RNA sequence: ACGAGGACUCCGCGCGGCGUCCACCCUGUGAACUCCCCCAGGGCCGGAAGGCAGCAAGGGUAAGCGGGCUCUGACGGGUGCGCGGAGUCCCUUUUUU
Dot-bracket structure: ....(((((((((((..((((...(((((.....(((.....(((....))).....)))...)))))....)))).)..)))))))))).......
Numbered sequence: 001a002c003g004a005g006g007a008c009u010c011c012g013c014g015c016g017g018c019g020u021c022c023a024c025c026c027u028g029u030g031a032a033c034u035c036c037c038c039c040a041g042g043g044c045c046g047g048a049a050g051g052c053a054g055c056a057a058g059g060g061u062a063a064g065c066g067g068g069c070u071c072u073g074a075c076g077g078g079u080g081c082g083c084g085g086a087g088u089c090c091c092u093u094u095u096u097u
Stems, first nucleotide, its partner, number of pairs: 005090010015078001018076004025068005035060003043052003